Record summary:
Rfam assigns this 72-nucleotide sequence from Streptosporangium subroseum to the family "ASpks TB sRNA".

[Rfam]
RNA sequence: CUUCACCGACCCCAGCCACAGCGGCUCACCGGAACGGUCACGCCCGUACGUGGCCAGCAGCGCCUGCGCCUC
Numbered sequence: 001c002u003u004c005a006c007c008g009a010c011c012c013c014a015g016c017c018a019c020a021g022c023g024g025c026u027c028a029c030c031g032g033a034a035c036g037g038u039c040a041c042g043c044c045c046g047u048a049c050g051u052g053g054c055c056a057g058c059a060g061c062g063c064c065u066g067c068g069c070c071u072c
Stems, first nucleotide, its partner, number of pairs: 014026004030066001035062002042055001044053003
Pairs were carried over by alignment from the consensus structure, which is taken from published work. It is annotated as an antisense RNA.